[Rfam]
RNA: Iron response element I
Organism: Mus musculus
RNA sequence: UUGUUUCUGCUUCAACAGUGUUUGAACUGAGCUG
Dot-bracket structure: (.(((.(.(.((((((...).)))))).)))).)